[Rfam]
The record is a 138-nucleotide RNA from Azotobacter vinelandii, which matches "Pseudomonas sRNA P11" in Rfam. About the family: This small RNA (sRNA) was computationally identified in the genome of the opportunistic pathogen Pseudomonas aeruginosa and its expression verified by northern blot analysis. P11 is located between a putative threonine protein kinase and putative nitrate reductase and appears to be conserved in several Pseudomonas species. P11 has a predicted Rho independent terminator at the 3'end but the function of P11 is unknown. The family's RNA type in Rfam is non-coding RNA gene. The organism belongs to Azotobacter vinelandii, within Bacteria.
RNA sequence: CAUCCGUGAAACUGGCACAGCCCCUGCAUCGAGAAAACCGACAGAUCACAUAAGCAUUGCCUUCAACGUGGAGGGCAGUGUUUCCCGACAGAACGGGAAUGGACAAAGGCGUCCUCGCUGGGUAACCGGCGGGACGCC
Dot-bracket structure: ............(((((.......)))..........................(((((.((.((......)).)).))))).(((((......))))).....))..(((((((.((((((....)))))))))))))